[Rfam]
RNA sequence: GUGAGGUAGGAAUACGAAGAAAUAGUUUAAGAGCAGUGAGACUAGGAACACGGAGGAAACCCCGAGCUAUCGGUCUGCAUCUCUGUAACAAGAGGUGGAUAUUUGUCUCGGUGUUUCCCCAUGCCUCUCAUUCCUAUUGUUCUUAGGUUCUCCUUCCCCUUCCUUUUACCU
Numbered sequence: 001g002u003g004a005g006g007u008a009g010g011a012a013u014a015c016g017a018a019g020a021a022a023u024a025g026u027u028u029a030a031g032a033g034c035a036g037u038g039a040g041a042c043u044a045g046g047a048a049c050a051c052g053g054a055g056g057a058a059a060c061c062c063c064g065a066g067c068u069a070u071c072g073g074u075c076u077g078c079a080u081c082u083c084u085g086u087a088a089c090a091a092g093a094g095g096u097g098g099a100u101a102u103u104u105g106u107c108u109c110g111g112u113g114u115u116u117c118c119c120c121a122u123g124c125c126u127c128u129c130a131u132u133c134c135u136a137u138u139g140u141u142c143u144u145a146g147g148u149u150c151u152c153c154u155u156c157c158c159c160u161u162c163c164u165u166u167u168a169c170c171u
Stems, first nucleotide, its partner, number of pairs: 009162003016155002022151001026147010037136002040133002043130001045128003049123002053119001055118006
Notes:
A member of the RNA family "MIR2118 microRNA precursor family" from Triticum aestivum, 171 nucleotides long. Rfam 15.1 lists 2,377 matches to the family in 45 species. The organism belongs to Triticum, within Eukaryota. The match comes from Rfam's covariance-model search (87 bits). The literature on the family includes a 2009 paper in Nucleic Acids Res by Xue et al., "Characterization and expression profiles of miRNAs in rice seeds".